[Rfam]
RNA sequence: CUUAAACCCACACACGUAUCGACACGGUUUCCUGGGUGCCCGCAAGGGUUGGAAGCUGGGAUACGUGGAGGCCUAAC
Numbered sequence: 001c002u003u004a005a006a007c008c009c010a011c012a013c014a015c016g017u018a019u020c021g022a023c024a025c026g027g028u029u030u031c032c033u034g035g036g037u038g039c040c041c042g043c044a045a046g047g048g049u050u051g052g053a054a055g056c057u058g059g060g061a062u063a064c065g066u067g068g069a070g071g072c073c074u075a076a077c
Stems, first nucleotide, its partner, number of pairs: 013067008025058008038049004